[Rfam]
RNA sequence: ACUCUGCCUUCCCCGCACAGGAAGGCGGAACGAGACUCGCGGCGCUCUCUGCCCUGACCGCGCCUGAGUCUCCGAACUCCGGGCUGCGGUGCCGGACGGGCUGAGGGUCCCGUCCCGGCGC
Numbered sequence: 001a002c003u004c005u006g007c008c009u010u011c012c013c014c015g016c017a018c019a020g021g022a023a024g025g026c027g028g029a030a031c032g033a034g035a036c037u038c039g040c041g042g043c044g045c046u047c048u049c050u051g052c053c054c055u056g057a058c059c060g061c062g063c064c065u066g067a068g069u070c071u072c073c074g075a076a077c078u079c080c081g082g083g084c085u086g087c088g089g090u091g092c093c094g095g096a097c098g099g100g101c102u103g104a105g106g107g108u109c110c111c112g113u114c115c116c117g118g119c120g121c
Stems, first nucleotide, its partner, number of pairs: 003029004008024005032072005038066002041064002044061002046057002076090003080086002094115007
Dot-bracket structure: ..((((.(((((.......))))).))))..(((((.((.((.((((........))..)).)))).)))))...(((.((...)).)))...(((((((........)))))))......
This 121-nucleotide RNA sequence from Streptomyces armeniacus belongs to the Rfam family "Streptomyces sRNA scr5239".
The organism belongs to Streptomyces, within Bacteria.
Rfam links the family to the GO terms negative regulation of translation and mRNA binding.
A search with the family's covariance model found it, with a score of 99 bits.
By type it is a small RNA.